[Rfam]
Nucleotides: 074
Stems, first nucleotide, its partner, number of pairs: 012041004018074001020072005025037001046063007
Number, partner (000 for none) and nucleotide at each position: 001000c002000g003000a004000g005000a006000g007000u008000u009000c010000a011000a012041g013040g014039c015038c016000a017000u018074a019000a020072c021071a022070g023069a024068a025037g026000c027000a028000c029000u030000c031000a032000a033000g034000a035000c036000a037025u038015g039014g040013c041012c042000a043000u044000g045000u046063c047062a048061g049060a050059u051058u052057c053000c054000a055000g056000u057052g058051a059050a060049u061048c062047u063046g064000u065000u066000a067000a068024u069023u070022c071021u072020g073000g074018u
Mammalian CPEB3 ribozyme: a 74-nucleotide RNA sequence from Alligator mississippiensis. The organism belongs to Alligator, within Eukaryota. Gene Ontology term of the family: RNA nuclease activity. A search with the family's covariance model found it, with a score of 42 bits.